[Rfam]
RNA sequence: AGGAGCCUUAGGUCCCUCCUGGGGGCGGGGCCUGAGGCACAUGGGCCCAACCCGACCAUGUGCCUCAGGCCCCGCCCCCAGGAGGGACCUAAGGCUCCGGGCCUAU
Dot-bracket structure: .((((((..(((.(((....((((((((((((((((...((((.............))))...))))))))))))))))....))).)))..))))))........
Numbered sequence: 001a002g003g004a005g006c007c008u009u010a011g012g013u014c015c016c017u018c019c020u021g022g023g024g025g026c027g028g029g030g031c032c033u034g035a036g037g038c039a040c041a042u043g044g045g046c047c048c049a050a051c052c053c054g055a056c057c058a059u060g061u062g063c064c065u066c067a068g069g070c071c072c073c074g075c076c077c078c079c080a081g082g083a084g085g086g087a088c089c090u091a092a093g094g095c096u097c098c099g100g101g102c103c104u105a106u
Stems, first nucleotide, its partner, number of pairs: 002098006010090003014086003021079016040060004

The family of this 106-nucleotide RNA from Geotrypetes seraphini is "mir-8834 microRNA precursor family". A search with the family's covariance model found it, with a score of 48 bits. NCBI's taxonomy places the organism under Eukaryota, Metazoa, Teleostomi, Gymnophiona, Geotrypetes. The family has 2 seed sequences and 13,926 matches in Rfam 15.1. Rfam links the family to the GO terms miRNA-mediated post-transcriptional gene silencing and RISC complex.